[Rfam]
algC RNA: a 52-nucleotide RNA. The family's consensus secondary structure is taken from published work. It is one of the family's seed sequences. Rfam classes the family as a cis-regulatory element.

RNA sequence: UAAUUUUUGGCCACUUUCUGGUCAGGGCCGACUGUUGCCUGAAGAAGGGUAA
Numbered sequence: 001u002a003a004u005u006u007u008u009g010g011c012c013a014c015u016u017u018c019u020g021g022u023c024a025g026g027g028c029c030g031a032c033u034g035u036u037g038c039c040u041g042a043a044g045a046a047g048g049g050u051a052a
Stems, first nucleotide, its partner, number of pairs: 009023005